[Rfam]
RNA sequence: AAUACGUACUAGCCGAAUUUCGUUUGGCGAAAACGGGGGAACCAAUCGAUUAUCCAGCCGGAUGAUCAUGGGGUGAAUUUCAAGCUAAACAUAUGCUGAGUUGUGUACAGCGCAUGUUUGCUGAAUAGGGCUGCCUGUCCAGGCCCGAAUCCGACAGCUAACCUCGCAGGCUAUGUGGAACAGGACU
Numbered sequence: 001a002a003u004a005c006g007u008a009c010u011a012g013c014c015g016a017a018u019u020u021c022g023u024u025u026g027g028c029g030a031a032a033a034c035g036g037g038g039g040a041a042c043c044a045a046u047c048g049a050u051u052a053u054c055c056a057g058c059c060g061g062a063u064g065a066u067c068a069u070g071g072g073g074u075g076a077a078u079u080u081c082a083a084g085c086u087a088a089a090c091a092u093a094u095g096c097u098g099a100g101u102u103g104u105g106u107a108c109a110g111c112g113c114a115u116g117u118u119u120g121c122u123g124a125a126u127a128g129g130g131c132u133g134c135c136u137g138u139c140c141a142g143g144c145c146c147g148a149a150u151c152c153g154a155c156a157g158c159u160a161a162c163c164u165c166g167c168a169g170g171c172u173a174u175g176u177g178g179a180a181c182a183g184g185a186c187u
Stems, first nucleotide, its partner, number of pairs: 011172004018032003034166005043070002071152003079125004128146004
Rfam assigns this 187-nucleotide RNA from Paenibacillus protaetiae to the family "c-di-AMP riboswitch aptamer (ydaO/yuaA leader)". The match comes from Rfam's covariance-model search (84 bits).